[Rfam]
RNA: c-di-AMP riboswitch aptamer (ydaO/yuaA leader)
RNA sequence: AGACCUGACGCGCCAAAUCCUGUCCAGCAGGUCCCCGGAUACGACCCCGAGCGGAAAGACAACUUCUGGACAGGAGCGUGAGAGCACUCCGGGCGUCCCGAAACGCCCUAGGGGUGAAGCCGGUCCCGACCGGCCGGGCACUCCCCGACAGAGCCCGAACCCGACAGCUCACUCGCAGGUGCGGUAGGAGAGAGAGA
Numbered sequence: 001a002g003a004c005c006u007g008a009c010g011c012g013c014c015a016a017a018u019c020c021u022g023u024c025c026a027g028c029a030g031g032u033c034c035c036c037g038g039a040u041a042c043g044a045c046c047c048c049g050a051g052c053g054g055a056a057a058g059a060c061a062a063c064u065u066c067u068g069g070a071c072a073g074g075a076g077c078g079u080g081a082g083a084g085c086a087c088u089c090c091g092g093g094c095g096u097c098c099c100g101a102a103a104c105g106c107c108c109u110a111g112g113g114g115u116g117a118a119g120c121c122g123g124u125c126c127c128g129a130c131c132g133g134c135c136g137g138g139c140a141c142u143c144c145c146c147g148a149c150a151g152a153g154c155c156c157g158a159a160c161c162c163g164a165c166a167g168c169u170c171a172c173u174c175g176c177a178g179g180u181g182c183g184g185u186a187g188g189a190g191a192g193a194g195a196g197a
Stems, first nucleotide, its partner, number of pairs: 011181004018075010076176003080172001087111002112162003120133004136156004